[Rfam]
RNA sequence: CUACCGGCAUCGCGAGAUGACGGGAUGGGCGACAGAAGUCAACAGAGGCCGUAGUAGCUGCUCGAAACCGGAGCAAUGAAGGGC
Numbered sequence: 001c002u003a004c005c006g007g008c009a010u011c012g013c014g015a016g017a018u019g020a021c022g023g024g025a026u027g028g029g030c031g032a033c034a035g036a037a038g039u040c041a042a043c044a045g046a047g048g049c050c051g052u053a054g055u056a057g058c059u060g061c062u063c064g065a066a067a068c069c070g071g072a073g074c075a076a077u078g079a080a081g082g083g084c
Base pairs, nucleotide, nucleotide: 002025004023005022006021008019009018010017011016039046040045048084049083050082057077059075060074061073062072
RNA: Group II catalytic intron D1-D4-1